This 134-nucleotide sequence from Pseudoteredinibacter isoporae belongs to the Rfam family "Alpha operon ribosome binding site". About the family: The bacterial alpha operon ribosome binding site is surrounded by this complex pseudoknotted structure. Translation of the mRNA produces 4 ribosomal protein products, one of which (S4) acts as a translational repressor by binding to the nested pseudoknot region. The mechanism of repression is thought to involve a conformational switch in the pseudoknot region and ribosome entrapment. By type it is a cis-regulatory element.
RNA sequence: CAUUUGUGCGGCUUUAUCGGUAUCCUUUCGCGCCUUUUGGUGCUGAGGGAGCUGGUAAUUGCUGUCAGCGCUACAAUUUAUAUGAUAUGUGGAGUAUCUAGAUGGCUCGUAUAGCUGGUGUAAACAUACCAGAU
Number, nucleotide and partner (000 for none) at each position: 001c000002a000003u000004u076005u075006g074007u073008g072009c000010g000011g069012c068013u067014u000015u000016a000017u000018c000019g000020g000021u000022a000023u000024c118025c117026u000027u000028u000029c109030g108031c000032g106033c000034c000035u000036u000037u133038u132039g000040g000041u000042g000043c000044u000045g000046a000047g000048g000049g000050a000051g000052c000053u000054g000055g000056u000057a000058a000059u000060u000061g000062c000063u000064g000065u000066c000067a013068g012069c011070g000071c000072u008073a007074c006075a005076a004077u000078u000079u000080a000081u000082a000083u000084g000085a000086u000087a000088u000089g000090u000091g000092g000093a000094g000095u000096a000097u000098c000099u000100a000101g000102a000103u000104g000105g000106c032107u000108c030109g029110u000111a000112u000113a000114g000115c000116u000117g025118g024119u000120g000121u000122a000123a000124a000125c000126a000127u000128a000129c000130c000131a000132g038133a037134u000
Annotation
A search with the family's covariance model found it, with a score of 44 bits. NCBI's taxonomy places the organism under Bacteria, Pseudomonadati, Gammaproteobacteria, Cellvibrionaceae, Pseudoteredinibacter.